[Rfam]
Notes
Shown here is a 316-nucleotide RNA sequence from Niallia endozanthoxylica, a member of the family "Group I catalytic intron". Its family is annotated with Group I intron splicing in the Gene Ontology. The organism belongs to Niallia, within Bacteria. The match comes from Rfam's covariance-model search (99 bits). Group I catalytic introns are large self-splicing ribozymes. They catalyse their own excision from mRNA, tRNA and rRNA precursors in a wide range of organisms. The core secondary structure consists of 9 paired regions (P1-P9). These fold to essentially two domains - the P4-P6 domain (formed from the stacking of P5, P4, P6 and P6a helices) and the P3-P9 domain (formed from the P8, P3, P7 and P9 helices). The secondary structure mark-up for this family represents only this conserved core. Group I catalytic introns often have long ORFs inserted in loop regions. The window size for this search is chosen to minimise search time and catch the small examples. A larger window size will find more matches.

RNA sequence: ACCUACGGGUUAUUGACUAGCCCCUUUGUAUAGUGAUAUGCAAAGCAAACUUCUCGAAUUGACGGGGAACCCCUUAGAGCCUUAUACACUAACUUAUCAUGGUGACAUAGAUAAGGGCGUUGCUAAUCCCAACGGUAUAGUAAAAGAGAUAAGGAUUUGGGCAAUCCGCAGCCAAGUAUCUUUAAAAGAUAAAGGUUCAACGACUGAUGCGGGAAGAAACUAAUUAGACGAUUAUUUUGAUUAUAUGGAAGCAAACCUUGAAUGAAAAAUGUCUAAUUAGUUUAUGAUACAGUCUGCACUUUAAGGAAACUUAAAG
Numbered sequence: 001a002c003c004u005a006c007g008g009g010u011u012a013u014u015g016a017c018u019a020g021c022c023c024c025u026u027u028g029u030a031u032a033g034u035g036a037u038a039u040g041c042a043a044a045g046c047a048a049a050c051u052u053c054u055c056g057a058a059u060u061g062a063c064g065g066g067g068a069a070c071c072c073c074u075u076a077g078a079g080c081c082u083u084a085u086a087c088a089c090u091a092a093c094u095u096a097u098c099a100u101g102g103u104g105a106c107a108u109a110g111a112u113a114a115g116g117g118c119g120u121u122g123c124u125a126a127u128c129c130c131a132a133c134g135g136u137a138u139a140g141u142a143a144a145a146g147a148g149a150u151a152a153g154g155a156u157u158u159g160g161g162c163a164a165u166c167c168g169c170a171g172c173c174a175a176g177u178a179u180c181u182u183u184a185a186a187a188g189a190u191a192a193a194g195g196u197u198c199a200a201c202g203a204c205u206g207a208u209g210c211g212g213g214a215a216g217a218a219a220c221u222a223a224u225u226a227g228a229c230g231a232u233u234a235u236u237u238u239g240a241u242u243a244u245a246u247g248g249a250a251g252c253a254a255a256c257c258u259u260g261a262a263u264g265a266a267a268a269a270u271g272u273c274u275a276a277u278u279a280g281u282u283u284a285u286g287a288u289a290c291a292g293u294c295u296g297c298a299c300u301u302u303a304a305g306g307a308a309a310c311u312u313a314a315a316g
Stems, first nucleotide, its partner, number of pairs: 005025001007023006029040003050216004055211002060170002063168004071161003171196002179188001200295001202294005219281011301314005